[Rfam]
Bacterial large subunit ribosomal RNA: a 336-nucleotide part of an RNA from Dyadobacter helix.
RNA sequence: CGAGUGAAUCACGGCUAAGGAACUCGGCAAAUUAACCCUGUAACUUCGGGAGAAGGGGAGCCUCCUCGCAAGAGAGGCCGCAGAGAAAUGGCCCAGGCGACUGUUUAGCAAAAACACAGGGCUCUGCCAAAACGCAAGUUGACGUAUAGGGCCUGACACCUGCCCGGUGCUGGAAGGUUAAGAGGGGAUGUCAUCGCAAGAGAAGCAUUGAAUCGAAGCCCCAGUAAACGGCGGCCGUAACUAUAACGGUCCUAAGGUAGCGAAAUUCCUUGUCGGGUAAGUUCCGACCUGCACGAAUGGUGUAACGAUCUGGGCACUGUCUCGGCCGUGAGCUCG
Numbered sequence: 001c002g003a004g005u006g007a008a009u010c011a012c013g014g015c016u017a018a019g020g021a022a023c024u025c026g027g028c029a030a031a032u033u034a035a036c037c038c039u040g041u042a043a044c045u046u047c048g049g050g051a052g053a054a055g056g057g058g059a060g061c062c063u064c065c066u067c068g069c070a071a072g073a074g075a076g077g078c079c080g081c082a083g084a085g086a087a088a089u090g091g092c093c094c095a096g097g098c099g100a101c102u103g104u105u106u107a108g109c110a111a112a113a114a115c116a117c118a119g120g121g122c123u124c125u126g127c128c129a130a131a132a133c134g135c136a137a138g139u140u141g142a143c144g145u146a147u148a149g150g151g152c153c154u155g156a157c158a159c160c161u162g163c164c165c166g167g168u169g170c171u172g173g174a175a176g177g178u179u180a181a182g183a184g185g186g187g188a189u190g191u192c193a194u195c196g197c198a199a200g201a202g203a204a205g206c207a208u209u210g211a212a213u214c215g216a217a218g219c220c221c222c223a224g225u226a227a228a229c230g231g232c233g234g235c236c237g238u239a240a241c242u243a244u245a246a247c248g249g250u251c252c253u254a255a256g257g258u259a260g261c262g263a264a265a266u267u268c269c270u271u272g273u274c275g276g277g278u279a280a281g282u283u284c285c286g287a288c289c290u291g292c293a294c295g296a297a298u299g300g301u302g303u304a305a306c307g308a309u310c311u312g313g314g315c316a317c318u319g320u321c322u323c324g325g326c327c328g329u330g331a332g333c334u335c336g
Stems, first nucleotide, its partner, number of pairs: 001336004009331008018322003036058004044049001060078005067072001079083001091315007098307002102116003119154008127144001131140003157302004162232003167229002169225005176220003182214002187209005194201002233251006252256001262289001272288006